A member of the RNA family "TPP riboswitch aptamer (THI element)" from Phytohabitans rumicis, 109 nucleotides long. NCBI's taxonomy places the organism under Bacteria, Actinomycetota, Actinomycetes, Micromonosporales, Phytohabitans. The base pairs follow the family's consensus structure, which is taken from published work.

[Rfam]
RNA sequence: GUACAACCCCGCGGGAGCCCGGUGCACCGGGCUGAGAGGGGGCAUGCAGCCCCCGACCGUCGAACCUGAUCCGGGUAAUGCCGGCGCAGGGAGGAGCGGCGUGUCCUUU
Numbered sequence: 001g002u003a004c005a006a007c008c009c010c011g012c013g014g015g016a017g018c019c020c021g022g023u024g025c026a027c028c029g030g031g032c033u034g035a036g037a038g039g040g041g042g043c044a045u046g047c048a049g050c051c052c053c054c055g056a057c058c059g060u061c062g063a064a065c066c067u068g069a070u071c072c073g074g075g076u077a078a079u080g081c082c083g084g085c086g087c088a089g090g091g092a093g094g095a096g097c098g099g100c101g102u103g104u105c106c107u108u109u
Base pairs, nucleotide, nucleotide: 007096009094010093011060012059013058014057017032018031019030020029021028039053040052041051042050043049065090066089067088068087071084072083073082074081